The record is a 365-nucleotide sequence from Novosphingobium fuchskuhlense, which matches "Alphaproteobacteria transfer-messenger RNA" in Rfam. Lineage of the source: Bacteria > Pseudomonadota > Alphaproteobacteria > Sphingomonadales > Novosphingobium. The base pairs follow the family's consensus structure, which is taken from published work. Bacterial tmRNA, also known as 10Sa RNA or SsrA, is named for its dual tRNA and mRNA-like properties. Clan: tRNA clan. The literature on the family includes a 1996 paper in RNA by Williams and Bartel, "Phylogenetic analysis of tmRNA secondary structure". Its family is annotated with RNA catabolic process in the Gene Ontology.
RNA sequence: CCCCUUCCCUUUCCUUCGCCGCGCUCCUAUAUCGGUUACGCCGGCUCAGGCCGGCUAUGACGAUAAAGUGUACCGUACAAUAGGCGCAGCGGACCCGGGGGCGGUACCCGGCGGCUCCACCAUCACCACCGGCUGAAACAGGUCGGGCUCUGUUGUCGCAGAGGUGUUGAUGGGGCCGAACUAGGAUCGACGUGUGUUGAAAAGCGGUGUUUUCGUCCGGGCUGAGUAACCCGUUAAAGGCUCAAAACCCACAAGUGCCAACGACAACGAAGCACUCGCUCUCGCGGCGUAAUCUGACGGCUUAACGGCCUGAUCUUACAAAGCUAAAGCGCGGUUGAACCCACCGGGCAACAGAAGGGAAUUCA
Numbered sequence: 001c002c003c004c005u006u007c008c009c010u011u012u013c014c015u016u017c018g019c020c021g022c023g024c025u026c027c028u029a030u031a032u033c034g035g036u037u038a039c040g041c042c043g044g045c046u047c048a049g050g051c052c053g054g055c056u057a058u059g060a061c062g063a064u065a066a067a068g069u070g071u072a073c074c075g076u077a078c079a080a081u082a083g084g085c086g087c088a089g090c091g092g093a094c095c096c097g098g099g100g101g102c103g104g105u106a107c108c109c110g111g112c113g114g115c116u117c118c119a120c121c122a123u124c125a126c127c128a129c130c131g132g133c134u135g136a137a138a139c140a141g142g143u144c145g146g147g148c149u150c151u152g153u154u155g156u157c158g159c160a161g162a163g164g165u166g167u168u169g170a171u172g173g174g175g176c177c178g179a180a181c182u183a184g185g186a187u188c189g190a191c192g193u194g195u196g197u198u199g200a201a202a203a204g205c206g207g208u209g210u211u212u213u214c215g216u217c218c219g220g221g222c223u224g225a226g227u228a229a230c231c232c233g234u235u236a237a238a239g240g241c242u243c244a245a246a247a248c249c250c251a252c253a254a255g256u257g258c259c260a261a262c263g264a265c266a267a268c269g270a271a272g273c274a275c276u277c278g279c280u281c282u283c284g285c286g287g288c289g290u291a292a293u294c295u296g297a298c299g300g301c302u303u304a305a306c307g308g309c310c311u312g313a314u315c316u317u318a319c320a321a322a323g324c325u326a327a328a329g330c331g332c333g334g335u336u337g338a339a340c341c342c343a344c345c346g347g348g349c350a351a352c353a354g355a356a357g358g359g360a361a362u363u364c365a
Stems, first nucleotide, its partner, number of pairs: 040055005059217005070210007085196003089193003095111005112178007218233004223244003332346004337364003342359001